This 210-nucleotide sequence from Anaerosolibacter carboniphilus belongs to the Rfam family "Enterococcus sRNA 1300". Rfam describes the family as follows. Expressed in mid and late exponential phases of growth. Expression remained uniform under daptomycin exposure. By type it is a small RNA. Taxonomically the source falls in Anaerosolibacter (Bacteria, Clostridia, Peptostreptococcales, Thermotaleaceae).
[Rfam]
RNA sequence: AUGUAUUCUGUACGUUUAAGAUAAGCUGGCAAUAAAAAAGUGGUAAAAACAUCCACGAUAGUGGGCUUUUUUGUUGUGCUUAUUUUGCGAAUAGAGACAUGGAUACGGGUGAAGUAUAGUCAUUUGAGGCUAUAUGUCUUUCUCCACGUCUUUUUAACGUUGGUAUGCAGACUAAAGCCCGCAUUGCGGAUUUUAGCCUGCAUUUUUUAU
Numbered sequence: 001a002u003g004u005a006u007u008c009u010g011u012a013c014g015u016u017u018a019a020g021a022u023a024a025g026c027u028g029g030c031a032a033u034a035a036a037a038a039a040g041u042g043g044u045a046a047a048a049a050c051a052u053c054c055a056c057g058a059u060a061g062u063g064g065g066c067u068u069u070u071u072u073g074u075u076g077u078g079c080u081u082a083u084u085u086u087g088c089g090a091a092u093a094g095a096g097a098c099a100u101g102g103a104u105a106c107g108g109g110u111g112a113a114g115u116a117u118a119g120u121c122a123u124u125u126g127a128g129g130c131u132a133u134a135u136g137u138c139u140u141u142c143u144c145c146a147c148g149u150c151u152u153u154u155u156a157a158c159g160u161u162g163g164u165a166u167g168c169a170g171a172c173u174a175a176a177g178c179c180c181g182c183a184u185u186g187c188g189g190a191u192u193u194u195a196g197c198c199u200g201c202a203u204u205u206u207u208u209a210u
Base pairs, nucleotide, nucleotide: 006096007095008094009093010092011091013089014088015087019085020084021083022082023081024080025079026078029077030076031075032074033073034072035071036070037069038068039067043066044065050063051062052061097149098148100146101145102144103143111140112139114137115136116135117134118133165203166202167201168200169199170198172196173195175193176192177191179189180188181187182186